Rfam assigns this 66-nucleotide RNA sequence from Halosimplex carlsbadense to the family "S15-Halobacteria ribosomal protein leader". The source organism's lineage runs through Archaea, Halobacteria, Halobacteriales, Halosimplex and Halosimplex carlsbadense. Rfam classes the family as a cis-regulatory leader. The literature on the family includes a 2020 paper in BMC Microbiol by Eckert and Weinberg, "Discovery of 20 novel ribosomal leader candidates in bacteria and archaea". Its Rfam clan is "Ribosomal Protein S15 Leader clan". The base pairs follow the family's consensus structure, which is taken from published work.
RNA sequence: GGUGGGAACGCACGACCGCAAAUCUGACUCGCUGUGCGCUUGCACAGCUCGGGAUUGCGGCCGUGU
Numbered sequence: 001g002g003u004g005g006g007a008a009c010g011c012a013c014g015a016c017c018g019c020a021a022a023u024c025u026g027a028c029u030c031g032c033u034g035u036g037c038g039c040u041u042g043c044a045c046a047g048c049u050c051g052g053g054a055u056u057g058c059g060g061c062c063g064u065g066u
Stems, first nucleotide, its partner, number of pairs: 010066004016060006024053002031048007